[Rfam]
RNA: Small nucleolar RNA SNORA5
RNA sequence: UGCAGCCAUGUCAAAUUCAGUGCUUCCUCUGCAAUGGACUGCACUGGCCAAAAUGGCUGCCAUAGUAAAACUAGUUCAUGGGCCUCGCAUUCAUUUUCCAUUAAUGUUGGGGAUAAAUUUGUGCUAAUGACAAUU
Numbered sequence: 001u002g003c004a005g006c007c008a009u010g011u012c013a014a015a016u017u018c019a020g021u022g023c024u025u026c027c028u029c030u031g032c033a034a035u036g037g038a039c040u041g042c043a044c045u046g047g048c049c050a051a052a053a054u055g056g057c058u059g060c061c062a063u064a065g066u067a068a069a070a071c072u073a074g075u076u077c078a079u080g081g082g083c084c085u086c087g088c089a090u091u092c093a094u095u096u097u098c099c100a101u102u103a104a105u106g107u108u109g110g111g112g113a114u115a116a117a118u119u120u121g122u123g124c125u126a127a128u129g130a131c132a133a134u135u
Base pairs, nucleotide, nucleotide: 002060003059004058005057018046019045020044021043022042023041027037028036072126073125074124075123076121083112084111085110086109087108